[Rfam]
Nucleotides: 099
Base pairs, nucleotide, nucleotide: 001099002098003097004096005095010086011085012084013083014082015081016080017079018078019077020075021074022073026057027056029055030054031053032052033051034050035049036048040092041091042090044088061072062071063070064069
Number, partner (000 for none) and nucleotide at each position: 001099g002098g003097c004096a005095g006000a007000g008000u009000a010086g011085a012084u013083g014082a015081c016080u017079g018078c019077g020075g021074g022073u023000c024000a025000c026057g027056u028000g029055c030054c031053c032052g033051g034050g035049g036048g037000a038000c039000g040092g041091g042090g043000a044088g045000u046000u047000g048036u049035c050034c051033c052032c053031g054030g055029g056027a057026c058000g059000a060000a061072a062071a063070g064069c065000a066000a067000c068000c069064g070063c071062u072061u073022g074021c075020c076000g077019u078018g079017c080016a081015g082014u083013c084012g085011u086010c087000g088044c089000a090042u091041c092040c093000c094000g095005c096004u097003g098002c099001c